The family of this 89-nucleotide RNA from Clostridium puniceum is "pan motif". A search with the family's covariance model found it, with a score of 52 bits.
RNA sequence: UGGGUAGUAUCUUAAUAGAGAGUUACACCAAACUAUUAAGCAUUAAAACUUAUAAUACAACUCAUAUCUAUAAUGAAUGAGAUUGAAAU
Numbered sequence: 001u002g003g004g005u006a007g008u009a010u011c012u013u014a015a016u017a018g019a020g021a022g023u024u025a026c027a028c029c030a031a032a033c034u035a036u037u038a039a040g041c042a043u044u045a046a047a048a049c050u051u052a053u054a055a056u057a058c059a060a061c062u063c064a065u066a067u068c069u070a071u072a073a074u075g076a077a078u079g080a081g082a083u084u085g086a087a088a089u
Stems, first nucleotide, its partner, number of pairs: 001030003004026005010021002058085003061081005067076002
Pairs were carried over by alignment from the consensus structure, which is taken from published work.